[Rfam]
RNA sequence: GGUAUUGUUUGCCCCAUUUGAAAGGCCCCGGAACCCUUCAAAUAAUUUGUGGACCGGAACAUCCACAUUGUAAACAUAAA
Numbered sequence: 001g002g003u004a005u006u007g008u009u010u011g012c013c014c015c016a017u018u019u020g021a022a023a024g025g026c027c028c029c030g031g032a033a034c035c036c037u038u039c040a041a042a043u044a045a046u047u048u049g050u051g052g053a054c055c056g057g058a059a060c061a062u063c064c065a066c067a068u069u070g071u072a073a074a075c076a077u078a079a080a
Base pairs, nucleotide, nucleotide: 006076007075008074009073010072011071012070016043017042018041019040020039022038023037024036025035
Annotation:
The family of this 80-nucleotide RNA from Streptococcus mutans is "Ribosomal protein L13 leader". The source organism's lineage runs through Bacteria, Bacillota, Bacilli, Streptococcaceae and Streptococcus mutans. On this family, see Zengel and Lindahl, Prog Nucleic Acid Res Mol Biol 1994: "Diverse mechanisms for regulating ribosomal protein synthesis in Escherichia coli". It is annotated as a cis-regulatory leader. Rfam describes the family as follows. This family is a putative r-protein leader autoregulatory structure found in B. subtilis and other low-GC Gram-positive bacteria.